A member of the RNA family "Small nucleolar RNA R38" from Brassica carinata, 91 nucleotides long. By type it is a C/D-box small nucleolar RNA. Lineage of the source: Eukaryota > Embryophyta > Tracheophyta > malvids > Brassica.
RNA sequence: UGAUGUGUAUGAUGAUAACAAAUAUGAAAAACAGUUAUCCCUGGCUGAGGAUUUAAUCCCGCUGAUGAUUCAUUUGUAAUCUGACACAUCA
Numbered sequence: 001u002g003a004u005g006u007g008u009a010u011g012a013u014g015a016u017a018a019c020a021a022a023u024a025u026g027a028a029a030a031a032c033a034g035u036u037a038u039c040c041c042u043g044g045c046u047g048a049g050g051a052u053u054u055a056a057u058c059c060c061g062c063u064g065a066u067g068a069u070u071c072a073u074u075u076g077u078a079a080u081c082u083g084a085c086a087c088a089u090c091a
Stems, first nucleotide, its partner, number of pairs: 001091007
Overview:
Rfam's curators write: snoR38 is a C/D box small nucleolar RNA conserved across yeast, human, Arabidopsis and rice. It is encoded in the intron of elongation factor-1 gamma in both pombe and cerevisiae. snoR38 guides the methylation of 2'-O-ribose sites in 28S rRNA. A search with the family's covariance model found it, with a score of 71 bits. A reference for the family is Chen et al. (2003), "The high diversity of snoRNAs in plants: identification and comparative study of 120 snoRNA genes from Oryza sativa", Nucleic Acids Res.